[Rfam]
Record summary: The family of this 75-nucleotide sequence from Crocodylus porosus is "Mammalian CPEB3 ribozyme". Pairs were carried over by alignment from the consensus structure, which is taken from published work. Rfam's curators write: The mammalian CPEB3 ribozyme is a self cleaving RNA located in the second intron of the CPEB3 gene which belongs to a family of genes regulating messenger RNA polyadenylation.
Nucleotides: 075
Base pairs, nucleotide, nucleotide: 013042014041015040019075021073022072023071024070025069026038027037028036047064049062050061051060052059053058
Number, partner (000 for none) and nucleotide at each position: 001000c002000c003000a004000a005000a006000a007000g008000u009000u010000c011000a012000a013042g014041g015040c016000c017000a018000c019075a020000g021073c022072a023071g024070a025069a026038g027037u028036g029000c030000u031000u032000a033000u034000g035000g036028u037027a038026c039000a040015g041014u042013c043000a044000u045000a046000u047064c048000a049062g050061a051060u052059u053058c054000u055000a056000c057000u058053g059052a060051a061050u062049c063000a064047g065000u066000g067000a068000a069025u070024u071023c072022u073021g074000a075019u